[Rfam]
RNA sequence: UCAGACGGUCGGAUGGCCGCCCCCUGGCAAGCAGCGGACGUGGUUCGCGAGGCUACCAGGCGGGAGGAAAGUCCGGGCUCCACGGAAAUACGGUGCCGGGUAACGCCCGGCGGGGGCGACCCCAGGGAAAGUGCCACAGAAAGCAAACCACCUGCCGGGGUCCGACCGCAUAUGGGAUUUCAUGGGACACCCCUAUGGGAUUUCAUGGGACGGGCCUGCAGGCCAGGAUGAAAGGGUGCGGUAAGAGCGCACCGCGCGCACGGCGACGUGAGCGGCAAGGUAAACCCCACCGGGAGCAAAACUAUGUAGGGACGGUAGGUUUCUGUUGGCUUGUCCGACAGGAAUCAGGCGGAUUUUCGCGUCGCCGUCCGGGUAAGUUGCGCGAGGCGCCCGGCAACGGGCGUCCCAGAUGAAUGGCCAUCCAUCCGCGGAAACGCGGGGGACAGAACCCGGCUUACAGAUCGUCUGACACC
Numbered sequence: 001u002c003a004g005a006c007g008g009u010c011g012g013a014u015g016g017c018c019g020c021c022c023c024c025u026g027g028c029a030a031g032c033a034g035c036g037g038a039c040g041u042g043g044u045u046c047g048c049g050a051g052g053c054u055a056c057c058a059g060g061c062g063g064g065a066g067g068a069a070a071g072u073c074c075g076g077g078c079u080c081c082a083c084g085g086a087a088a089u090a091c092g093g094u095g096c097c098g099g100g101u102a103a104c105g106c107c108c109g110g111c112g113g114g115g116g117c118g119a120c121c122c123c124a125g126g127g128a129a130a131g132u133g134c135c136a137c138a139g140a141a142a143g144c145a146a147a148c149c150a151c152c153u154g155c156c157g158g159g160g161u162c163c164g165a166c167c168g169c170a171u172a173u174g175g176g177a178u179u180u181c182a183u184g185g186g187a188c189a190c191c192c193c194u195a196u197g198g199g200a201u202u203u204c205a206u207g208g209g210a211c212g213g214g215c216c217u218g219c220a221g222g223c224c225a226g227g228a229u230g231a232a233a234g235g236g237u238g239c240g241g242u243a244a245g246a247g248c249g250c251a252c253c254g255c256g257c258g259c260a261c262g263g264c265g266a267c268g269u270g271a272g273c274g275g276c277a278a279g280g281u282a283a284a285c286c287c288c289a290c291c292g293g294g295a296g297c298a299a300a301a302c303u304a305u306g307u308a309g310g311g312a313c314g315g316u317a318g319g320u321u322u323c324u325g326u327u328g329g330c331u332u333g334u335c336c337g338a339c340a341g342g343a344a345u346c347a348g349g350c351g352g353a354u355u356u357u358c359g360c361g362u363c364g365c366c367g368u369c370c371g372g373g374u375a376a377g378u379u380g381c382g383c384g385a386g387g388c389g390c391c392c393g394g395c396a397a398c399g400g401g402c403g404u405c406c407c408a409g410a411u412g413a414a415u416g417g418c419c420a421u422c423c424a425u426c427c428g429c430g431g432a433a434a435c436g437c438g439g440g441g442g443a444c445a446g447a448a449c450c451c452g453g454c455u456u457a458c459a460g461a462u463c464g465u466c467u468g469a470c471a472c473c
Stems, first nucleotide, its partner, number of pairs: 001469010011458001012422007020064003024060002027057001069456003073453005078296004086357003091292005096110005111125001112123004126287002131285002133281003148227002151222005157216002235253006254276001255274003259270004300379004310370006348363004386405008
Shown here is a 473-nucleotide sequence from Denitrobaculum tricleocarpae, a member of the family "Bacterial RNase P class A". The family's consensus secondary structure is taken from published work. Its family is annotated with ribonuclease P activity, dimeric ribonuclease P complex and tRNA processing in the Gene Ontology. NCBI's taxonomy places the organism under Bacteria, Pseudomonadota, Rhodospirillales, Rhodospirillaceae, Denitrobaculum.